[Rfam]
RNA sequence: UGGCGAUGAAGCAGAGGACUGGUUCGGCAUCAGCCUGUUGUGAAGCUAAACCGUGGGUUAAGCGAAAACCACAAGCCGAAUACAUUCACUUGAAUCGAACAAAAACGCAAAAU
Numbered sequence: 001u002g003g004c005g006a007u008g009a010a011g012c013a014g015a016g017g018a019c020u021g022g023u024u025c026g027g028c029a030u031c032a033g034c035c036u037g038u039u040g041u042g043a044a045g046c047u048a049a050a051c052c053g054u055g056g057g058u059u060a061a062g063c064g065a066a067a068a069c070c071a072c073a074a075g076c077c078g079a080a081u082a083c084a085u086u087c088a089c090u091u092g093a094a095u096c097g098a099a100c101a102a103a104a105a106c107g108c109a110a111a112a113u
Base pairs, nucleotide, nucleotide: 001048002047003046004045011041012040013039014038016036017035019033020032021031024079025078026077027076062108063107064106084095085094086093
Rfam assigns this 113-nucleotide RNA sequence to the family "drum RNA". From the family's description: Firmicutes, Bacteroidetes (1 example), Proteobacteria (2 examples), Spirochaetes (2 examples). Rfam classes the family as a small RNA.